[Rfam]
RNA sequence: AUGAAGAUAAUCAGAGAGACUGUUUGUAACAGCGCCGACGGGGAAAGCACGAUAGUGUGAAACUCUCAGGCAAAAGGAUGAUUAUUGGACG
Numbered sequence: 001a002u003g004a005a006g007a008u009a010a011u012c013a014g015a016g017a018g019a020c021u022g023u024u025u026g027u028a029a030c031a032g033c034g035c036c037g038a039c040g041g042g043g044a045a046a047g048c049a050c051g052a053u054a055g056u057g058u059g060a061a062a063c064u065c066u067c068a069g070g071c072a073a074a075a076g077g078a079u080g081a082u083u084a085u086u087g088g089a090c091g
Base pairs, nucleotide, nucleotide: 006086007085008084009083010082011081012080013079020032021031022030023029034071035070036069037067038066041065042064043063047058048057
Record summary
Glycine riboswitch aptamer: a 91-nucleotide sequence from Listeria grayi. The base pairs follow the family's consensus structure. Rfam 15.1 lists 9,425 matches to the family in 5,228 species.